[Rfam]
RNA: Bacterial large subunit ribosomal RNA, nucleotides 1984 to 2321
Organism: Azospirillum lipoferum
RNA sequence: UGAGAGAAUGGUGUUGAAGGAACUCGGCAAAUUGCCCUCGUAACUUCGGAAGAAGAGGGCCCCGUUGUGGCGCAAGCCAUGGCGGGGGGCACAGACCAGGGGGUAGCGACUGUUUACUAAAAACACAGGGCUCUGCGAAGCCACACAAGGCGACGUAUAGGGUCUGACGCCUGCCCGGUGCCGGAAGGUUAAGAGGAGAGGUGCAAGCCUUGAAUUGAAGCCCCGGUAAACGGCGGCCGUAACUAUAACGGUCCUAAGGUAGCGAAAUUCCUUGUCGGGUAAGUUCCGACCUGCACGAAUGGCGUAACGACUUCCCCGCUGUCUCCAACACCAACUCA
Numbered sequence: 001u002g003a004g005a006g007a008a009u010g011g012u013g014u015u016g017a018a019g020g021a022a023c024u025c026g027g028c029a030a031a032u033u034g035c036c037c038u039c040g041u042a043a044c045u046u047c048g049g050a051a052g053a054a055g056a057g058g059g060c061c062c063c064g065u066u067g068u069g070g071c072g073c074a075a076g077c078c079a080u081g082g083c084g085g086g087g088g089g090c091a092c093a094g095a096c097c098a099g100g101g102g103g104u105a106g107c108g109a110c111u112g113u114u115u116a117c118u119a120a121a122a123a124c125a126c127a128g129g130g131c132u133c134u135g136c137g138a139a140g141c142c143a144c145a146c147a148a149g150g151c152g153a154c155g156u157a158u159a160g161g162g163u164c165u166g167a168c169g170c171c172u173g174c175c176c177g178g179u180g181c182c183g184g185a186a187g188g189u190u191a192a193g194a195g196g197a198g199a200g201g202u203g204c205a206a207g208c209c210u211u212g213a214a215u216u217g218a219a220g221c222c223c224c225g226g227u228a229a230a231c232g233g234c235g236g237c238c239g240u241a242a243c244u245a246u247a248a249c250g251g252u253c254c255u256a257a258g259g260u261a262g263c264g265a266a267a268u269u270c271c272u273u274g275u276c277g278g279g280u281a282a283g284u285u286c287c288g289a290c291c292u293g294c295a296c297g298a299a300u301g302g303c304g305u306a307a308c309g310a311c312u313u314c315c316c317c318g319c320u321g322u323c324u325c326c327a328a329c330a331c332c333a334a335c336u337c338a
Stems, first nucleotide, its partner, number of pairs: 001338004009333008018324003035059005044049001060087012088092001100317004105312002107309002111125003128165008136155001140151003168304004173234003178231002180227005187222003193216002198211005235253006254258001264291001274290006